Rfam assigns this 57-nucleotide RNA from Acyrthosiphon pisum to the family "mir-3015 microRNA precursor family". Pairs were carried over by alignment from the consensus structure, which was predicted with RNAalifold.
[Rfam]
RNA sequence: GUUCUUACGACCUCCGGUUAAAGUUAACCGACACUUUACUGGACAUUGUAAGAACGG
Numbered sequence: 001g002u003u004c005u006u007a008c009g010a011c012c013u014c015c016g017g018u019u020a021a022a023g024u025u026a027a028c029c030g031a032c033a034c035u036u037u038a039c040u041g042g043a044c045a046u047u048g049u050a051a052g053a054a055c056g057g
Base pairs, nucleotide, nucleotide: 001055002054003053004052005051006050007049008048009047010046013043014042015041016040017039018038020036021035023032024031025030